[Rfam]
RNA sequence: CACAUUGUAGGCCUCAUUAAAUAUUUGUUGUAUGAAAAAUGAAUCAUCAACAGACAUUAAUUGGGCACUUGCUCUAUG
Numbered sequence: 001c002a003c004a005u006u007g008u009a010g011g012c013c014u015c016a017u018u019a020a021a022u023a024u025u026u027g028u029u030g031u032a033u034g035a036a037a038a039a040u041g042a043a044u045c046a047u048c049a050a051c052a053g054a055c056a057u058u059a060a061u062u063g064g065g066c067a068c069u070u071g072c073u074c075u076a077u078g
Base pairs, nucleotide, nucleotide: 001078002077004075007072008071009070010069011068013065014064015063016062018060020058021057022056024054025053026052027051028050029049030048033046034045035044
A member of the RNA family "mir-95 microRNA precursor family" from Myotis brandtii, 78 nucleotides long. Lineage of the source: Eukaryota > Eutheria > Laurasiatheria > Vespertilionidae > Myotis. Gene Ontology terms of the family: miRNA-mediated post-transcriptional gene silencing, long-term synaptic potentiation and response to bacterium. Pairs were carried over by alignment from the consensus structure, which was predicted with RNAalifold.